Annotation
The record is a 437-nucleotide part of an RNA from Lactobacillus psittaci, which matches "Bacterial large subunit ribosomal RNA" in Rfam.

[Rfam]
RNA sequence: CUCUCCGAAAUAGCUUUAGGGCUAGCCUCGCGAGAGAGGAUAAUGGAGGUAGAGCACUGUUUGGACUAGGGGCCCGUCAGGGGUUACUGAAUCCAGAUAAACUCCGAAUUCCAUAUAUCUAUACGCGGGAGUCAGACUGCGAGUGAUAAGAUCCGUAGUCGAAAGGGAAACAGCCCAGAUCACCAGUUAAGGUCCCCAAAUCUAUGCUAAGUGGAAAAGGAUGUGGAGUUGCGUAGACAACUAGGACGUUGGCUUAGAAGCAGCCAUCAUUCAAAGAGUGCGUAAUAGCUCACUAGUCGAGUGGCGCUGCGCCGAAAAUUUACCGGGGCUAAGCAUAGUACCGAAACUGUGGAUGUACGUAAGUACGUGGUAGGAGAGCGUUCUAAUAGCGGAGAAGCCUAAUCGAGAGGAUAGGUGGAGCGAUUAGAAGUGAGAAU
Numbered sequence: 001c002u003c004u005c006c007g008a009a010a011u012a013g014c015u016u017u018a019g020g021g022c023u024a025g026c027c028u029c030g031c032g033a034g035a036g037a038g039g040a041u042a043a044u045g046g047a048g049g050u051a052g053a054g055c056a057c058u059g060u061u062u063g064g065a066c067u068a069g070g071g072g073c074c075c076g077u078c079a080g081g082g083g084u085u086a087c088u089g090a091a092u093c094c095a096g097a098u099a100a101a102c103u104c105c106g107a108a109u110u111c112c113a114u115a116u117a118u119c120u121a122u123a124c125g126c127g128g129g130a131g132u133c134a135g136a137c138u139g140c141g142a143g144u145g146a147u148a149a150g151a152u153c154c155g156u157a158g159u160c161g162a163a164a165g166g167g168a169a170a171c172a173g174c175c176c177a178g179a180u181c182a183c184c185a186g187u188u189a190a191g192g193u194c195c196c197c198a199a200a201u202c203u204a205u206g207c208u209a210a211g212u213g214g215a216a217a218a219g220g221a222u223g224u225g226g227a228g229u230u231g232c233g234u235a236g237a238c239a240a241c242u243a244g245g246a247c248g249u250u251g252g253c254u255u256a257g258a259a260g261c262a263g264c265c266a267u268c269a270u271u272c273a274a275a276g277a278g279u280g281c282g283u284a285a286u287a288g289c290u291c292a293c294u295a296g297u298c299g300a301g302u303g304g305c306g307c308u309g310c311g312c313c314g315a316a317a318a319u320u321u322a323c324c325g326g327g328g329c330u331a332a333g334c335a336u337a338g339u340a341c342c343g344a345a346a347c348u349g350u351g352g353a354u355g356u357a358c359g360u361a362a363g364u365a366c367g368u369g370g371u372a373g374g375a376g377a378g379c380g381u382u383c384u385a386a387u388a389g390c391g392g393a394g395a396a397g398c399c400u401a402a403u404c405g406a407g408a409g410g411a412u413a414g415g416u417g418g419a420g421c422g423a424u425u426a427g428a429a430g431u432g433a434g435a436a437u
Stems, first nucleotide, its partner, number of pairs: 001378006011024005026131001027129006037122001038119002043114005052105001053103002058099003062095004069088002071085005135160007143152002165176003180352004185348003191342003200339001202338006219313002223310004228305005240297005246270001248268001251265003271275001276291001280289002353368006379432001381429007389421002397416005403410002
Clan: LSU clan.